[Rfam]
RNA sequence: AUGUCAGUUGCGGCUCAUCGUCUGGCACUUUGCUUGUUAAUAUCGCUAGCUGCCUAGCGAAGGGCAACAAAUGACAG
Numbered sequence: 001a002u003g004u005c006a007g008u009u010g011c012g013g014c015u016c017a018u019c020g021u022c023u024g025g026c027a028c029u030u031u032g033c034u035u036g037u038u039a040a041u042a043u044c045g046c047u048a049g050c051u052g053c054c055u056a057g058c059g060a061a062g063g064g065c066a067a068c069a070a071a072u073g074a075c076a077g
Stems, first nucleotide, its partner, number of pairs: 003075004008070003013065004018060004024054004032050003
The family of this 77-nucleotide RNA sequence from Plutella xylostella is "mir-745 microRNA precursor family". It is one of the family's seed sequences. Its family is annotated with RISC complex and miRNA-mediated post-transcriptional gene silencing in the Gene Ontology. Pairs were carried over by alignment from the consensus structure, which was predicted with RNAalifold.